[Rfam]
RNA sequence: AUUUAUAUUUAUUAAUAACACACACAUACUUCAACGUUGUCCGGGGUGCCAAUAUUUUUGGUCGGAUUCAGCGGGUAUGUGGAGGCUCAAC
Numbered sequence: 001a002u003u004u005a006u007a008u009u010u011a012u013u014a015a016u017a018a019c020a021c022a023c024a025c026a027u028a029c030u031u032c033a034a035c036g037u038u039g040u041c042c043g044g045g046g047u048g049c050c051a052a053u054a055u056u057u058u059u060g061g062u063c064g065g066a067u068u069c070a071g072c073g074g075g076u077a078u079g080u081g082g083a084g085g086c087u088c089a090a091c
Stems, first nucleotide, its partner, number of pairs: 023081007035073005040066004048062005
Rfam assigns this 91-nucleotide RNA from Catenovulum agarivorans to the family "t44 RNA". The source organism's lineage runs through Bacteria, Pseudomonadati, Pseudomonadota, Alteromonadales and Catenovulum agarivorans. Rfam's curators write: This family consists of a number of bacterial RNA genes of between 135 and 170 bases in length. The base pairs follow the family's consensus structure, which was predicted with LocARNA.